[Rfam]
Annotation: U4 spliceosomal RNA: a 143-nucleotide sequence from Alectura lathami. The organism belongs to Alectura, within Eukaryota. The family's RNA type in Rfam is spliceosomal small nuclear RNA. Gene Ontology terms of the family: U4 snRNP and spliceosomal tri-snRNP complex assembly. Pairs were carried over by alignment from the consensus structure, which is taken from published work. The literature on the family includes a 2017 paper in Nature by Plaschka et al., "Structure of a pre-catalytic spliceosome". A search with the family's covariance model found it, with a score of 76 bits.

RNA sequence: AGCUUUGCACAGUGGCAGUAUCGUAGCCGAUGAGGUUAAUCCGAGGCGCGAUUAUUGCUAGUUGAAAACUUUUCACGAGCGAUGUCCCCCAGGGGUCCGUCUUGGGACCGGUGCUCUGCAACAUCUUUAUUGACGACUUAGAC
Dot-bracket structure: ...................(((((.(((.....((.....))..)))))))).....................................(((((..(((((....)).)))..))))).........................